[Rfam]
RNA sequence: UGUUUUUGGUGAAAGUAGUUUUGGUCAAAGUGAUUUUUCUGUACGUGUGAGAACUCAAUUCUGAGUUAACAGAGGGGGUAGCGAGUGAGUAUAGCUAUUAUCAUUGGCACACAU
Numbered sequence: 001u002g003u004u005u006u007u008g009g010u011g012a013a014a015g016u017a018g019u020u021u022u023g024g025u026c027a028a029a030g031u032g033a034u035u036u037u038u039c040u041g042u043a044c045g046u047g048u049g050a051g052a053a054c055u056c057a058a059u060u061c062u063g064a065g066u067u068a069a070c071a072g073a074g075g076g077g078g079u080a081g082c083g084a085g086u087g088a089g090u091a092u093a094g095c096u097a098u099u100a101u102c103a104u105u106g107g108c109a110c111a112c113a114u
Stems, first nucleotide, its partner, number of pairs: 021107005027101001028099001029096003033092002035089003039085002041082002043079001046077001048075001052067006
ManX 5' UTR thermometer: a 114-nucleotide sequence from Yersinia aldovae. The base pairs follow the family's consensus structure. Rfam links the family to the GO terms regulation of translation and response to temperature stimulus. For this family Rfam cites "Temperature-responsive in vitro RNA structurome of Yersinia pseudotuberculosis" (Righetti et al., Proc Natl Acad Sci U S A, 2016). The sequence is in the family's curated seed alignment. Rfam's curators write: Short UTR positioned upstream of ManX gene responsible for sugar uptake. Lineage of the source: Bacteria > Enterobacterales > Yersiniaceae > Yersinia > Yersinia aldovae.